[Rfam]
Nucleotides: 086
Base pairs, nucleotide, nucleotide: 012075013074014073015072016071017070018069019068020067021065022064023063024062025061026060029057030056
Number, partner (000 for none) and nucleotide at each position: 001000g002000u003000g004000c005000c006000c007000a008000a009000a010000g011000u012075c013074c014073c015072u016071u017070a018069u019068c020067a021065u022064u023063c024062u025061c026060u027000a028000g029057c030056c031000c032000g033000g034000u035000g036000u037000u038000a039000a040000a041000u042000g043000u044000u045000c046000g047000a048000u049000a050000c051000c052000u053000a054000c055000u056030g057029g058000a059000c060026g061025g062024a063023g064022a065021a066000c067020u068019g069018a070017u071016a072015a073014g074013g075012g076000c077000c078000c079000g080000c081000g082000g083000g084000a085000u086000a
The record is an 86-nucleotide sequence from Neodiprion lecontei, which matches "mir-184 microRNA precursor family" in Rfam. The family has 66 seed sequences and 948 matches in Rfam 15.1. Its family is annotated with RISC complex and gene silencing by miRNA in the Gene Ontology. On this family, see Chen et al., Genes Dev 2005: "The developmental miRNA profiles of zebrafish as determined by small RNA cloning". It scores 71 bits against the family's covariance model.